[Rfam]
RNA sequence: GAUUGCAAUAUCCUCUCUGCAAUCGCGGCUG
Numbered sequence: 001g002a003u004u005g006c007a008a009u010a011u012c013c014u015c016u017c018u019g020c021a022a023u024c025g026c027g028g029c030u031g
Stems, first nucleotide, its partner, number of pairs: 001024007
The family of this 31-nucleotide RNA sequence is "S4-Bacteroidia ribosomal protein leader". On this family, see Eckert and Weinberg, BMC Microbiol 2020: "Discovery of 20 novel ribosomal leader candidates in bacteria and archaea". The family's RNA type in Rfam is cis-regulatory leader. It is one of the family's seed sequences.